[Rfam]
RNA sequence: GGAAUAUAAGAAAUUGUCUUUUAAUUUUUAACUAAAAAAACUAAGAACCGGCUCUUAAAUAAGAUAUUUAAGAGCCGGUUCUUAACUUUUUUACUUAAAAGUUAAGAAACAGUUUCUUAUAUUCC
Numbered sequence: 001g002g003a004a005u006a007u008a009a010g011a012a013a014u015u016g017u018c019u020u021u022u023a024a025u026u027u028u029u030a031a032c033u034a035a036a037a038a039a040a041c042u043a044a045g046a047a048c049c050g051g052c053u054c055u056u057a058a059a060u061a062a063g064a065u066a067u068u069u070a071a072g073a074g075c076c077g078g079u080u081c082u083u084a085a086c087u088u089u090u091u092u093a094c095u096u097a098a099a100a101g102u103u104a105a106g107a108a109a110c111a112g113u114u115u116c117u118u119a120u121a122u123u124c125c
Stems, first nucleotide, its partner, number of pairs: 001125017019107013033093007042084006
RNA: MIR9563 microRNA precursor family